[Rfam]
RNA sequence: UGCUAUUUGCAGGUGGGGAGAAGUAGCAAUGCUCUGUGCCUGUGUAGUAUUGCACUUGUCCCGGCCUGUGAAUGGUAA
Numbered sequence: 001u002g003c004u005a006u007u008u009g010c011a012g013g014u015g016g017g018g019a020g021a022a023g024u025a026g027c028a029a030u031g032c033u034c035u036g037u038g039c040c041u042g043u044g045u046a047g048u049a050u051u052g053c054a055c056u057u058g059u060c061c062c063g064g065c066c067u068g069u070g071a072a073u074g075g076u077a078a
Stems, first nucleotide, its partner, number of pairs: 004074003009069006016062004022056003026053008